RNA sequence: CCUACCGAAGUUUCCCUUAGGAUAGUAGUAACGGAAACGCAGUUUUAUAAGGUAAAGCGAAUGAUUAGAGGCCUAGGGGUUAAAACAACCUUCACCUAUUCUUAAACUUUAAAUAUAUAAGAAGUCCUUAUUACUUAAUUGAACGUGGAUAUUCGAAUACACCGUUACUAGUAGGCCAUUUUUAGUAAGUAGAACUAGCGAUACGGGAUGAACCGAACGCGAUGUUAAGGUGCCGGAAUACACGCUUAUUAGAUACUAUAAAAGGUAUUAGUUCAUCUAGAUAGUAGGACGGUAGCCAUGGAAGUCGGAAUCCGCUAAGGAGUAUAUAAUAACUCACCUACCGAAUGAACUAGCCCUAAAAAUGGAUGGCGCUUAAGUAUGUUAUCUAUAUAUCGCCGCUAGGGUAGGCUUACUACCCUAGCGAGUAGGUAGGCGUAGAGGUCUAUAAUAAAGUCUUCGGGGUAACCCGGGGUCGAACGGCCUCUAGUAUAGAU
Numbered sequence: 001c002c003u004a005c006c007g008a009a010g011u012u013u014c015c016c017u018u019a020g021g022a023u024a025g026u027a028g029u030a031a032c033g034g035a036a037a038c039g040c041a042g043u044u045u046u047a048u049a050a051g052g053u054a055a056a057g058c059g060a061a062u063g064a065u066u067a068g069a070g071g072c073c074u075a076g077g078g079g080u081u082a083a084a085a086c087a088a089c090c091u092u093c094a095c096c097u098a099u100u101c102u103u104a105a106a107c108u109u110u111a112a113a114u115a116u117a118u119a120a121g122a123a124g125u126c127c128u129u130a131u132u133a134c135u136u137a138a139u140u141g142a143a144c145g146u147g148g149a150u151a152u153u154c155g156a157a158u159a160c161a162c163c164g165u166u167a168c169u170a171g172u173a174g175g176c177c178a179u180u181u182u183u184a185g186u187a188a189g190u191a192g193a194a195c196u197a198g199c200g201a202u203a204c205g206g207g208a209u210g211a212a213c214c215g216a217a218c219g220c221g222a223u224g225u226u227a228a229g230g231u232g233c234c235g236g237a238a239u240a241c242a243c244g245c246u247u248a249u250u251a252g253a254u255a256c257u258a259u260a261a262a263a264g265g266u267a268u269u270a271g272u273u274c275a276u277c278u279a280g281a282u283a284g285u286a287g288g289a290c291g292g293u294a295g296c297c298a299u300g301g302a303a304g305u306c307g308g309a310a311u312c313c314g315c316u317a318a319g320g321a322g323u324a325u326a327u328a329a330u331a332a333c334u335c336a337c338c339u340a341c342c343g344a345a346u347g348a349a350c351u352a353g354c355c356c357u358a359a360a361a362a363u364g365g366a367u368g369g370c371g372c373u374u375a376a377g378u379a380u381g382u383u384a385u386c387u388a389u390a391u392a393u394c395g396c397c398g399c400u401a402g403g404g405u406a407g408g409c410u411u412a413c414u415a416c417c418c419u420a421g422c423g424a425g426u427a428g429g430u431a432g433g434c435g436u437a438g439a440g441g442u443c444u445a446u447a448a449u450a451a452a453g454u455c456u457u458c459g460g461g462g463u464a465a466c467c468c469g470g471g472g473u474c475g476a477a478c479g480g481c482c483u484c485u486a487g488u489a490u491a492g493a494u
Stems, first nucleotide, its partner, number of pairs: 001433006011024001013022003027169007043122007055110001056108002062104003067099001069097003074094001076092004081087001124150004129145001131143002175199002178196001180194005204215003219396005225390001229386003238383001240382001244378002263357003268353009284341005290314003296308002315319001320335001325332001397423009436486008446477001453473002459468003
Background:
The family of this 494-nucleotide part of an RNA from Pseudovirgaria hyperparasitica is "Eukaryotic large subunit ribosomal RNA". It scores 2813 bits against the family's covariance model.